The family of this 99-nucleotide RNA sequence from Hibiscus trionum is "Small nucleolar RNA snoR27". It is annotated as a C/D-box small nucleolar RNA. The match comes from Rfam's covariance-model search (61 bits). For this family Rfam cites "Multiple snoRNA gene clusters from Arabidopsis" (Brown et al., RNA, 2001). The base pairs follow the family's consensus structure, which was predicted with WAR.
RNA sequence: UUUGGAACAAAGAUGUUAAUUUUAUACUGCGUUAUCUAUCUGAUCGUCCCUUCUUUGAAAGGAACUGAAGAUAACACUGAAUUCAUACUGAGAUCCAGU
Numbered sequence: 001u002u003u004g005g006a007a008c009a010a011a012g013a014u015g016u017u018a019a020u021u022u023u024a025u026a027c028u029g030c031g032u033u034a035u036c037u038a039u040c041u042g043a044u045c046g047u048c049c050c051u052u053c054u055u056u057g058a059a060a061g062g063a064a065c066u067g068a069a070g071a072u073a074a075c076a077c078u079g080a081a082u083u084c085a086u087a088c089u090g091a092g093a094u095c096c097a098g099u
Stems, first nucleotide, its partner, number of pairs: 002098005